[Rfam]
RNA sequence: GUCGCAGACCGCCUUAUCGCCGUCUUGAAAAAGAGGGAGGAAAGUCCGGGCACCAUAGAGCAACAUAGCGGGUAACGCCCGUCACCGGAAGCAAUUCCGGGAGGACAAGUGCAACAGAAAGUAUGUACAGGUAAUGCUGUAGUGAAACCAGGUAAACUCUAUGUGGUGAAAUACCAAGUAUAUCGGCUUUUAAGGGCUGCUCGUCCGUUGCCGAAGGGUAGGUAGAUUGAGUUCCGGAGUAAUUCGGAAUCUAGAUAAAUGAUAAGGGUUUCUUUUUAAGAAAUACAGAACCCGGCUUACAGGUCUGCUUUUUUA
Numbered sequence: 001g002u003c004g005c006a007g008a009c010c011g012c013c014u015u016a017u018c019g020c021c022g023u024c025u026u027g028a029a030a031a032a033g034a035g036g037g038a039g040g041a042a043a044g045u046c047c048g049g050g051c052a053c054c055a056u057a058g059a060g061c062a063a064c065a066u067a068g069c070g071g072g073u074a075a076c077g078c079c080c081g082u083c084a085c086c087g088g089a090a091g092c093a094a095u096u097c098c099g100g101g102a103g104g105a106c107a108a109g110u111g112c113a114a115c116a117g118a119a120a121g122u123a124u125g126u127a128c129a130g131g132u133a134a135u136g137c138u139g140u141a142g143u144g145a146a147a148c149c150a151g152g153u154a155a156a157c158u159c160u161a162u163g164u165g166g167u168g169a170a171a172u173a174c175c176a177a178g179u180a181u182a183u184c185g186g187c188u189u190u191u192a193a194g195g196g197c198u199g200c201u202c203g204u205c206c207g208u209u210g211c212c213g214a215a216g217g218g219u220a221g222g223u224a225g226a227u228u229g230a231g232u233u234c235c236g237g238a239g240u241a242a243u244u245c246g247g248a249a250u251c252u253a254g255a256u257a258a259a260u261g262a263u264a265a266g267g268g269u270u271u272c273u274u275u276u277u278a279a280g281a282a283a284u285a286c287a288g289a290a291c292c293c294g295g296c297u298u299a300c301a302g303g304u305c306u307g308c309u310u311u312u313u314u315a
Base pairs, nucleotide, nucleotide: 001311004308005307006306007305008304009303010302011300012267013266014265015264016263017262018261020037021036023034024033025032026031042298043297044296046295047294048293049292050291051168052167053166054165058202059201060200061199063164064163065162066161067160068082069081070080071079072078083103085100086099087098088097089096090095104159105158109157110156111153112152126141127140128139129138130137172224173223174222175221183214184213185212186211187210194206195205196204197203231250232249233248234247235246236245237244238243
Bacterial RNase P class A: a 315-nucleotide sequence from Flavobacterium sp. Leaf359.
It scores 197 bits against the family's covariance model.
By type it is a ribozyme.